[Rfam]
RNA sequence: AGACAAUAUAAGUCUGCUUUUUUCGCAGGAGAAGGAGAUAAUGUGCAUGACGUCAUGCACAUUAUCUCCUUCUCCUGCGAAAAAAGCAGACUUAUAUUGUCU
Numbered sequence: 001a002g003a004c005a006a007u008a009u010a011a012g013u014c015u016g017c018u019u020u021u022u023u024c025g026c027a028g029g030a031g032a033a034g035g036a037g038a039u040a041a042u043g044u045g046c047a048u049g050a051c052g053u054c055a056u057g058c059a060c061a062u063u064a065u066c067u068c069c070u071u072c073u074c075c076u077g078c079g080a081a082a083a084a085a086g087c088a089g090a091c092u093u094a095u096a097u098u099g100u101c102u
Stems, first nucleotide, its partner, number of pairs: 002101004012091009022081028

Overview: The family of this 102-nucleotide RNA sequence from Dibothriocephalus latus is "MIR6274 microRNA precursor family". NCBI's taxonomy places the organism under Eukaryota, Opisthokonta, Rhabditophora, Neodermata, Dibothriocephalus. It scores 81 bits against the family's covariance model.